The record is a 79-nucleotide RNA sequence from Pseudomonas putida, which matches "Proteo-phage-1 RNA" in Rfam.
[Rfam]
RNA sequence: CUGCAGCCAGGGCAGCCCUAACGGGGACGCCUGGACACUGCUAGCCGGUAGUGUGGUGUACGGAAAAACACCGGCAGCC
Dot-bracket structure: [[[[..(((((]]]](((....)))....))))).(((((...[[[[[.....)))))............]]]]]....
The family's RNA type in Rfam is small RNA. The sequence is in the family's curated seed alignment.